[Rfam]
RNA: c-di-GMP-I riboswitch aptamer
Organism: Alkaliphilus pronyensis
RNA sequence: AUAUAUUUUAGGCAAACCUAUUGAAAAGUAGGGACGCAAAGCUAAUGGGCCUUUCAUUUGAGUGGCAGCCUAGCCGCAAAU
Numbered sequence: 001a002u003a004u005a006u007u008u009u010a011g012g013c014a015a016a017c018c019u020a021u022u023g024a025a026a027a028g029u030a031g032g033g034a035c036g037c038a039a040a041g042c043u044a045a046u047g048g049g050c051c052u053u054u055c056a057u058u059u060g061a062g063u064g065g066c067a068g069c070c071u072a073g074c075c076g077c078a079a080a081u
Base pairs, nucleotide, nucleotide: 012037013036017032018031019030020029021028022027041074042073043072045071047070048069049066050065051064053062054061055060